This 131-nucleotide RNA sequence from Takifugu flavidus belongs to the Rfam family "Small nucleolar RNA SNORA14". The family's consensus secondary structure was predicted with RNAfold. Rfam 15.1 lists 848 matches to the family in 633 species. Gene Ontology terms of the family: nucleolus and RNA processing. ACA14 is a member of the H/ACA class of snoRNA that guide the sites of modification of uridines to pseudouridines. The match comes from Rfam's covariance-model search (48 bits).
[Rfam]
RNA sequence: CAGCAUCCUCACAAACCCCCCAGCUGCAGCCUGUGGCUCCUGGGACAAGAGAGGGUGCAAGAGCAACGUUAGAAUCAUCCAAAACUGAGGGCCGAGCCGUCGCUCCCAGUUAUUUCACCUCUAAAACAGAA
Numbered sequence: 001c002a003g004c005a006u007c008c009u010c011a012c013a014a015a016c017c018c019c020c021c022a023g024c025u026g027c028a029g030c031c032u033g034u035g036g037c038u039c040c041u042g043g044g045a046c047a048a049g050a051g052a053g054g055g056u057g058c059a060a061g062a063g064c065a066a067c068g069u070u071a072g073a074a075u076c077a078u079c080c081a082a083a084a085c086u087g088a089g090g091g092c093c094g095a096g097c098c099g100u101c102g103c104u105c106c107c108a109g110u111u112a113u114u115u116c117a118c119c120u121c122u123a124a125a126a127c128a129g130a131a
Stems, first nucleotide, its partner, number of pairs: 003058004008051003019044005026037002064129001069124005083111005089105001091103002